This 103-nucleotide RNA belongs to the Rfam family "RT-5 RNA".
[Rfam]
RNA sequence: UUGCGCCUGCGGAGGACGCAGCACCACCCGUAAAGGGCCUUGCAGGCGGCAGGGUGGUGUCCCCGUCCGGUGAUCGGCAAUUUUGCCGAUUCAAAAUCAUUCC
Numbered sequence: 001u002u003g004c005g006c007c008u009g010c011g012g013a014g015g016a017c018g019c020a021g022c023a024c025c026a027c028c029c030g031u032a033a034a035g036g037g038c039c040u041u042g043c044a045g046g047c048g049g050c051a052g053g054g055u056g057g058u059g060u061c062c063c064c065g066u067c068c069g070g071u072g073a074u075c076g077g078c079a080a081u082u083u084u085g086c087c088g089a090u091u092c093a094a095a096a097u098c099a100u101u102c103c
Stems, first nucleotide, its partner, number of pairs: 005047007014068002017065002021060006028054002037050003074089006